[Rfam]
RNA: T-box leader
Organism: Clostridioides difficile
RNA sequence: GUAAAUGCAAUGAAAGAGGAAAGUAUUUUGAUUAAACUUAGUAAAGAGAUAAACACCUAGGCUGGGAGUGUUUUCUAAGAGGUCAUGAGAAGUUCCCUCUGGAGUAACAGAGCUGAAAUUUUACAGUAGGCUUUGACGUCAAAAACGCGUUAAGUUUGUUAGAGGUGGUUUGAUGAUUUUUAAAUUGUUAAACUACUAGGGUGGUACCGCGAAACUAUAGCCUUUCGUCCCUAGA
Number, nucleotide and partner (000 for none) at each position: 001g000002u000003a000004a000005a000006u000007g105008c104009a000010a000011u000012g000013a000014a000015a100016g099017a098018g097019g000020a000021a000022a000023g000024u000025a000026u088027u087028u000029u085030g084031a083032u000033u000034a000035a000036a000037c000038u000039u077040a076041g075042u000043a000044a000045a000046g000047a000048g000049a000050u000051a073052a072053a071054c070055a069056c068057c000058u000059a000060g000061g000062c000063u000064g000065g000066g000067a000068g056069u055070g054071u053072u052073u051074u000075c041076u040077a039078a000079g000080a000081g000082g000083u031084c030085a029086u000087g027088a026089g000090a000091a000092g000093u000094u000095c000096c000097c018098u017099c016100u015101g000102g000103a000104g008105u007106a000107a000108c135109a134110g133111a132112g131113c130114u129115g000116a000117a000118a000119u000120u000121u000122u000123a000124c000125a000126g000127u000128a000129g114130g113131c112132u111133u110134u109135g108136a000137c149138g148139u147140c000141a000142a000143a000144a000145a000146c000147g139148c138149g137150u000151u000152a000153a000154g000155u000156u000157u000158g000159u000160u000161a000162g000163a000164g000165g000166u000167g000168g193169u192170u191171u190172g189173a188174u187175g186176a185177u184178u000179u000180u000181u000182a000183a000184a177185u176186u175187g174188u173189u172190a171191a170192a169193c168194u000195a000196c000197u000198a232199g231200g230201g229202u000203g000204g000205u000206a000207c000208c000209g228210c227211g226212a225213a224214a000215c000216u000217a000218u000219a000220g000221c000222c000223u000224u213225u212226c211227g210228u209229c201230c200231c199232u198233a000234g000235a000